Small nucleolar RNA SNORA81: a 186-nucleotide RNA from Rhinolophus ferrumequinum. Rfam classes the family as an H/ACA-box small nucleolar RNA. The match comes from Rfam's covariance-model search (155 bits). Rfam 15.1 lists 1,161 matches to the family in 643 species. Its family is annotated with nucleolus and RNA processing in the Gene Ontology. Taxonomically the source falls in Rhinolophus (Eukaryota, Tetrapoda, Boreoeutheria, Rhinolophidae). The literature on the family includes a 2005 paper in Nucleic Acids Res by Gu et al., "A novel experimental approach for systematic identification of box H/ACA snoRNAs from eukaryotes".
[Rfam]
RNA sequence: ACCUUCAGUAUAAGCACUGUGCUAAAAUUGCAGAAACUAGGAUCACAUCUAGGUUUUUGUAAAAAUGCUAGCAGCAGAGCACAUACAAGAAGAAAAGUAACUGCACUAGACUGUAAAGACUGAGGUAAAGAAAGACCUCUUUCUUAAUGUCCAGUGUCCUCAGUCUUAAGAUUUGGUGUAAUAUGU
Numbered sequence: 001a002c003c004u005u006c007a008g009u010a011u012a013a014g015c016a017c018u019g020u021g022c023u024a025a026a027a028u029u030g031c032a033g034a035a036a037c038u039a040g041g042a043u044c045a046c047a048u049c050u051a052g053g054u055u056u057u058u059g060u061a062a063a064a065a066u067g068c069u070a071g072c073a074g075c076a077g078a079g080c081a082c083a084u085a086c087a088a089g090a091a092g093a094a095a096a097g098u099a100a101c102u103g104c105a106c107u108a109g110a111c112u113g114u115a116a117a118g119a120c121u122g123a124g125g126u127a128a129a130g131a132a133a134g135a136c137c138u139c140u141u142u143c144u145u146a147a148u149g150u151c152c153a154g155u156g157u158c159c160u161c162a163g164u165c166u167u168a169a170g171a172u173u174u175g176g177u178g179u180a181a182u183a184u185g186u
Stems, first nucleotide, its partner, number of pairs: 017079002020073005027066003033057002036054003040050004102180009122157001124155001126153001129150001